[Rfam]
RNA sequence: AUAAAAAAAACCUGUAAGUAAUACCUACAGGCUGCCUUAAACCGGUUUUCACUUGUUAAGGCAAGGGGAGAGGAGAAACCGGAGGAAGAGCUCGUGGGGAAUAACAAGUCUUCUCCGCGG
Numbered sequence: 001a002u003a004a005a006a007a008a009a010a011c012c013u014g015u016a017a018g019u020a021a022u023a024c025c026u027a028c029a030g031g032c033u034g035c036c037u038u039a040a041a042c043c044g045g046u047u048u049u050c051a052c053u054u055g056u057u058a059a060g061g062c063a064a065g066g067g068g069a070g071a072g073g074a075g076a077a078a079c080c081g082g083a084g085g086a087a088g089a090g091c092u093c094g095u096g097g098g099g100a101a102u103a104a105c106a107a108g109u110c111u112u113c114u115c116c117g118c119g120g
Stems, first nucleotide, its partner, number of pairs: 011031006018024002032068002035066003040057003044053002080117004085113004090109003094105001
The family of this 120-nucleotide sequence from Salipaludibacillus neizhouensis is "ylbH leader". Rfam classes the family as a cis-regulatory leader. Lineage of the source: Bacteria > Bacillati > Bacilli > Bacillaceae > Salipaludibacillus. This family is a putative regulatory RNA structure that is found upstream of the ylbH gene in B. subtilis and related low GC Gram-positive bacteria. Pairs were carried over by alignment from the consensus structure.